A member of the RNA family "L2-Alphaproteobacteria ribosomal protein leader" from Jannaschia helgolandensis, 66 nucleotides long. A search with the family's covariance model found it, with a score of 64 bits. The family's consensus secondary structure is taken from published work. It is annotated as a cis-regulatory leader.
RNA sequence: GGGGACCUUCGGGGCCCUAUACCUACGGUGGGGAAACCCACCGUUAUGCAAAACGGAAGACAGGUA
Numbered sequence: 001g002g003g004g005a006c007c008u009u010c011g012g013g014g015c016c017c018u019a020u021a022c023c024u025a026c027g028g029u030g031g032g033g034a035a036a037c038c039c040a041c042c043g044u045u046a047u048g049c050a051a052a053a054c055g056g057a058a059g060a061c062a063g064g065u066a
Stems, first nucleotide, its partner, number of pairs: 001018004006014003027042006